Record summary
This 115-nucleotide sequence from Fusibacter sp. A1 belongs to the Rfam family "FMN riboswitch aptamer (RFN element)". It scores 114 bits against the family's covariance model.

RNA sequence: CAAUUUCUUCAGGGCGGGGUGCGAGUCCCCACCGGCGGUAAAGCCCGCGAGCCGAAAGGUUGAUCUGGUUAGAUUCCAGAGCCGACAGUUAUAGUCUGGAUGGGAGAAGAACUUU
Numbered sequence: 001c002a003a004u005u006u007c008u009u010c011a012g013g014g015c016g017g018g019g020u021g022c023g024a025g026u027c028c029c030c031a032c033c034g035g036c037g038g039u040a041a042a043g044c045c046c047g048c049g050a051g052c053c054g055a056a057a058g059g060u061u062g063a064u065c066u067g068g069u070u071a072g073a074u075u076c077c078a079g080a081g082c083c084g085a086c087a088g089u090u091a092u093a094g095u096c097u098g099g100a101u102g103g104g105a106g107a108a109g110a111a112c113u114u115u
Stems, first nucleotide, its partner, number of pairs: 003113001005111006017029003031095002033084002035048004043082002051060003064080005086098003
Pairs were carried over by alignment from the consensus structure, which is taken from published work.